SAM riboswitch aptamer (S box leader): a 108-nucleotide sequence from Lederbergia lenta. On this family, see Epshtein et al., Proc Natl Acad Sci U S A 2003: "The riboswitch-mediated control of sulfur metabolism in bacteria". The organism belongs to Lederbergia, within Bacteria. It scores 83 bits against the family's covariance model.

RNA sequence: CUCUUAUCGAGAGAGGUGGAGGGAAUGUGCCCUGCGAAGCCCGGCAACCGUCACGGAUGUGAAAUGGUGCCAAUUCACACGAAGCUUAAUCGCUUUGAUAGAUGAGAG
Numbered sequence: 001c002u003c004u005u006a007u008c009g010a011g012a013g014a015g016g017u018g019g020a021g022g023g024a025a026u027g028u029g030c031c032c033u034g035c036g037a038a039g040c041c042c043g044g045c046a047a048c049c050g051u052c053a054c055g056g057a058u059g060u061g062a063a064a065u066g067g068u069g070c071c072a073a074u075u076c077a078c079a080c081g082a083a084g085c086u087u088a089a090u091c092g093c094u095u096u097g098a099u100a101g102a103u104g105a106g107a108g
Stems, first nucleotide, its partner, number of pairs: 001108008013042001015041003021032003026079004043071004048067002051062003075100001080097006